A member of the RNA family "RNase MRP" from Zancudomyces culisetae, 383 nucleotides long. The match comes from Rfam's covariance-model search (92 bits).

Nucleotides: 383
Base pairs, nucleotide, nucleotide: 002383003382004381005380006379007378008377009376010375011374015306016305017304018303019302028087029086030085031084032083033082034081045073046072047071049069050068051067052066053065054064055063056062057061091369092368093367095366096365097364098363109121110120111119112118122147123146125144127142159257160256161255162254163253164252169249171247181242182241183240225236226235227234228233309354310353311352313350314349
Number, partner (000 for none) and nucleotide at each position: 001000a002383g003382a004381c005380a006379a007378c008377a009376c010375g011374a012000a013000g014000a015306u016305u017304c018303g019302c020000u021000u022000u023000a024000u025000a026000c027000a028087u029086c030085g031084g032083g033082g034081u035000u036000u037000u038000a039000c040000u041000u042000a043000u044000g045073g046072g047071g048000u049069c050068a051067u052066c053065c054064u055063g056062c057061c058000u059000a060000u061057g062056g063055u064054g065053g066052g067051g068050u069049g070000u071047c072046u073045c074000u075000g076000u077000a078000u079000c080000g081034a082033c083032c084031c085030u086029g087028g088000g089000g090000a091369a092368a093367g094000u095366c096365c097364c098363c099000g100000g101000a102000c103000a104000a105000g106000u107000u108000u109121g110120g111119c112118a113000g114000a115000a116000a117000g118112u119111g120110c121109c122147a123146g124000c125144c126000g127142u128000a129000a130000a131000g132000g133000u134000a135000a136000a137000c138000a139000u140000g141000c142127a143000g144125g145000u146123c147122u148000a149000c150000u151000u152000c153000g154000a155000u156000u157000u158000c159257a160256a161255c162254c163253g164252a165000c166000a167000a168000u169249u170000c171247g172000u173000u174000c175000u176000c177000u178000u179000u180000u181242g182241g183240c184000g185000u186000a187000g188000a189000a190000g191000u192000g193000u194000g195000g196000a197000u198000g199000c200000u201000u202000c203000u204000g205000u206000u207000u208000c209000u210000g211000a212000a213000a214000a215000u216000g217000g218000a219000a220000u221000u222000u223000g224000a225236g226235u227234g228233u229000g230000u231000u232000u233228g234227c235226a236225c237000c238000g239000a240183g241182c242181c243000u244000g245000g246000u247171u248000c249169g250000u251000u252164u253163u254162g255161g256160u257159u258000a259000a260000g261000g262000u263000u264000g265000g266000g267000a268000u269000g270000u271000u272000g273000u274000g275000a276000a277000a278000u279000g280000c281000c282000a283000a284000u285000u286000g287000u288000c289000a290000u291000a292000g293000c294000a295000a296000a297000g298000u299000u300000a301000u302019g303018c304017g305016a306015a307000a308000u309354u310353a311352g312000u313350g314349c315000u316000u317000u318000g319000a320000u321000a322000g323000a324000u325000a326000g327000a328000g329000a330000g331000u332000u333000u334000c335000u336000c337000u338000c339000u340000g341000u342000u343000u344000c345000u346000c347000a348000c349314g350313c351000u352311c353310u354309a355000a356000c357000c358000u359000c360000a361000a362000c363098g364097g365096g366095g367093c368092u369091u370000a371000c372000u373000c374011u375010u376009g377008u378007g379006u380005u381004g382003u383002u